[Rfam]
RNA sequence: UUCAUAAAACAGGUGACGAUAUGUAUAUUCUGGAGAUGGGUCCAGAGUUUCUACCAACUGCCGUAAAGAGUUGACUACAUAGUUACAUGAACCGGGG
Numbered sequence: 001u002u003c004a005u006a007a008a009a010c011a012g013g014u015g016a017c018g019a020u021a022u023g024u025a026u027a028u029u030c031u032g033g034a035g036a037u038g039g040g041u042c043c044a045g046a047g048u049u050u051c052u053a054c055c056a057a058c059u060g061c062c063g064u065a066a067a068g069a070g071u072u073g074a075c076u077a078c079a080u081a082g083u084u085a086c087a088u089g090a091a092c093c094g095g096g097g
Base pairs, nucleotide, nucleotide: 018083020081021080022079023078024077025076029046030045031044032043033042034041055073056072057071058070059069
RNA: Purine riboswitch aptamer
Organism: Clostridium sp. AM33-3